The family of this 61-nucleotide RNA from Synechococcus sp. CC9902 is "Glutamine-II riboswitch aptamer". Pairs were carried over by alignment from the consensus structure, which is taken from published work. For this family Rfam cites "Structure and ligand binding of the glutamine-II riboswitch" (Huang et al., Nucleic Acids Res, 2019). The organism belongs to Synechococcus, within Bacteria. The sequence is in the family's curated seed alignment.
[Rfam]
RNA sequence: AGACGUUGAGCUUGGCAUGCUGAGCUGCAGUUUGAAUUCAUCCAGGCAACGGGGGAUGGGU
Numbered sequence: 001a002g003a004c005g006u007u008g009a010g011c012u013u014g015g016c017a018u019g020c021u022g023a024g025c026u027g028c029a030g031u032u033u034g035a036a037u038u039c040a041u042c043c044a045g046g047c048a049a050c051g052g053g054g055g056a057u058g059g060g061u
Base pairs, nucleotide, nucleotide: 004051005050006049007048008047010025011024012023013022014021036061037060038059039058040057041056042054043053